[Rfam]
Nucleotides: 144
Base pairs, nucleotide, nucleotide: 002143003142004141005140006139007138008137011134012133013132014131015130016129018127019126020125021124023122024121025120026119028117029116030115031114032113033112
Number, partner (000 for none) and nucleotide at each position: 001000u002143g003142u004141u005140a006139a007138a008137a009000g010000a011134u012133u013132c014131a015130u016129c017000c018127a019126u020125u021124u022000c023122u024121a025120u026119u027000a028117u029116u030115a031114a032113a033112a034000a035000u036000u037000g038000g039000u040000u041000c042000u043000u044000a045000u046000g047000c048000a049000c050000c051000a052000a053000c054000a055000u056000g057000a058000a059000a060000u061000a062000u063000a064000c065000a066000u067000a068000a069000c070000a071000c072000a073000a074000c075000a076000c077000a078000u079000g080000u081000a082000a083000u084000u085000g086000u087000c088000u089000g090000g091000u092000u093000a094000u095000u096000u097000u098000g099000u100000c101000a102000a103000c104000u105000g106000c107000a108000c109000u110000a111000a112033u113032u114031u115030u116029a117028a118000c119026a120025g121024u122023a123000a124021a125020a126019a127018u128000a129016g130015a131014u132013g133012a134011a135000a136000a137008u138007u139006u140005u141004a142003a143002u144000a

A member of the RNA family "MIR7502 microRNA precursor family" from Gossypium australe, 144 nucleotides long.
Its family is annotated with miRNA-mediated post-transcriptional gene silencing and RISC complex in the Gene Ontology.